[Rfam]
RNA sequence: AAAAAAGCAGGGGCAUGUUACCUGUGUGAGCAGGCCUCUCGUAACCUUCAGGGAUAUAAUUACCAAUGUUAUUGGGUGAACCUCUGUUUAUUUGUUUGACUGAAGGUUCAGUAAACGAUGGAACACUG
Numbered sequence: 001a002a003a004a005a006a007g008c009a010g011g012g013g014c015a016u017g018u019u020a021c022c023u024g025u026g027u028g029a030g031c032a033g034g035c036c037u038c039u040c041g042u043a044a045c046c047u048u049c050a051g052g053g054a055u056a057u058a059a060u061u062a063c064c065a066a067u068g069u070u071a072u073u074g075g076g077u078g079a080a081c082c083u084c085u086g087u088u089u090a091u092u093u094g095u096u097u098g099a100c101u102g103a104a105g106g107u108u109c110a111g112u113a114a115a116c117g118a119u120g121g122a123a124c125a126c127u128g
Stems, first nucleotide, its partner, number of pairs: 005048003011037002014034001016032002063121003067117004077110007
RNA: Small nucleolar RNA snoR74
Organism: Abrus precatorius